[Rfam]
RNA sequence: ACUCCUUCUUUGGGUGGGGACUGGGUGUGUGGUCUGGCUCCCUAUUAUAUAGGGAGGCAGAGGGAAAGGGCUCUGGCUCCCUCAAUGCCGUGUCUUAAGUAUUGGCAGUUUCCUGUCCACUGGUUCCACACUCAAGCGCUGAGACACUG
Numbered sequence: 001a002c003u004c005c006u007u008c009u010u011u012g013g014g015u016g017g018g019g020a021c022u023g024g025g026u027g028u029g030u031g032g033u034c035u036g037g038c039u040c041c042c043u044a045u046u047a048u049a050u051a052g053g054g055a056g057g058c059a060g061a062g063g064g065a066a067a068g069g070g071c072u073c074u075g076g077c078u079c080c081c082u083c084a085a086u087g088c089c090g091u092g093u094c095u096u097a098a099g100u101a102u103u104g105g106c107a108g109u110u111u112c113c114u115g116u117c118c119a120c121u122g123g124u125u126c127c128a129c130a131c132u133c134a135a136g137c138g139c140u141g142a143g144a145c146a147c148u149g
Base pairs, nucleotide, nucleotide: 002056003055004054005053015044016043017042018041019040020039022037024035025034083141084140086138087137088136102123103122104121105120108117
A member of the RNA family "Small nucleolar RNA SNORA57" from Carlito syrichta, 149 nucleotides long. Rfam describes the family as follows. U99 belongs to the H/ACA class of snoRNAs which are thought to guide the sites of modification of uridines to pseudouridines, the target for this family is unknown. The family's consensus secondary structure was predicted with PFOLD. Gene Ontology terms of the family: RNA processing and nucleolus. Rfam 15.1 lists 1,736 matches to the family in 530 species.